[Rfam]
RNA sequence: ACUGGGGAAUGGAAGGCUAAUUUCGCGACGUCCUGUCGCAACGCCUUCAUGACCCACGUCCUGUGGG
Numbered sequence: 001a002c003u004g005g006g007g008a009a010u011g012g013a014a015g016g017c018u019a020a021u022u023u024c025g026c027g028a029c030g031u032c033c034u035g036u037c038g039c040a041a042c043g044c045c046u047u048c049a050u051g052a053c054c055c056a057c058g059u060c061c062u063g064u065g066g067g
Stems, first nucleotide, its partner, number of pairs: 012048006025039005053067005
A member of the RNA family "Bacillaceae-1 RNA" from Lentibacillus sp. JNUCC-1, 67 nucleotides long. The organism belongs to Lentibacillus, within Bacteria. A search with the family's covariance model found it, with a score of 69 bits. By type it is a small RNA.